small nucleolar RNA snoR134: a 145-nucleotide sequence from Spinacia oleracea. The family's RNA type in Rfam is H/ACA-box small nucleolar RNA. The family has 5 seed sequences and 792 matches in Rfam 15.1. On this family, see Chen and Wu, Nucleic Acids Res 2009: "Mining small RNA sequencing data: a new approach to identify small nucleolar RNAs in Arabidopsis".
[Rfam]
RNA sequence: AUGCAUGUUGCACCCUGGGCUUCUCUGAACAAUAAAAGUUGACGAUGUUAAGUCCCAAUGCUCGUGCUAUAUACCAUUUGCCCUUCGUGUUGCAGUUCGGCUGACUCUAAACGGCUGAUUUGUGUCUUAAUUAAUGGCUAAAUCC
Numbered sequence: 001a002u003g004c005a006u007g008u009u010g011c012a013c014c015c016u017g018g019g020c021u022u023c024u025c026u027g028a029a030c031a032a033u034a035a036a037a038g039u040u041g042a043c044g045a046u047g048u049u050a051a052g053u054c055c056c057a058a059u060g061c062u063c064g065u066g067c068u069a070u071a072u073a074c075c076a077u078u079u080g081c082c083c084u085u086c087g088u089g090u091u092g093c094a095g096u097u098c099g100g101c102u103g104a105c106u107c108u109a110a111a112c113g114g115c116u117g118a119u120u121u122g123u124g125u126c127u128u129a130a131u132u133a134a135u136g137g138c139u140a141a142a143u144c145c
Stems, first nucleotide, its partner, number of pairs: 003067005010061002017055005023047001024045002080138003084134002089126001091124005099115001101113001
A search with the family's covariance model found it, with a score of 73 bits. NCBI's taxonomy places the organism under Eukaryota, Viridiplantae, Euphyllophyta, eudicotyledons, Spinacia.